[Rfam]
RNA sequence: AGAGGUCCUCUGCGGCCGAGGUGGAACGCUUGCCUCGUCGCCGUAGCGACAAAGCAAGCAUUCCGCCAGGCCGCUCACACUGCCUGC
Dot-bracket structure: ...(((.....((((((..(((((((.((((((...(((((....)))))...)))))).))))))).)))))).......)))...

A member of the RNA family "mir-9195 microRNA precursor family" from Myotis myotis, 87 nucleotides long.
It scores 106 bits against the family's covariance model.